[Rfam]
RNA: Small nucleolar RNA SNORA72
RNA sequence: CUGUGAAUAUUAUUGCUGUUCUGAUUUUGUUAUAAUCGGGGUAGACUAAACAUUUGCUAUAUUAACCAUGCAUGUGUCCCCAGACCUAGUUCUUCCCUAGGUCUGGUUUUAUCAAUGCUGGUGAUAAAC
Numbered sequence: 001c002u003g004u005g006a007a008u009a010u011u012a013u014u015g016c017u018g019u020u021c022u023g024a025u026u027u028u029g030u031u032a033u034a035a036u037c038g039g040g041g042u043a044g045a046c047u048a049a050a051c052a053u054u055u056g057c058u059a060u061a062u063u064a065a066c067c068a069u070g071c072a073u074g075u076g077u078c079c080c081c082a083g084a085c086c087u088a089g090u091u092c093u094u095c096c097c098u099a100g101g102u103c104u105g106g107u108u109u110u111a112u113c114a115a116u117g118c119u120g121g122u123g124a125u126a127a128a129c
Base pairs, nucleotide, nucleotide: 003057004056005055016044017043018042019041020040021039022038023037024036025035026034065122066121067120068119070118071117080106081105082104083103084102085101086100087099088098089097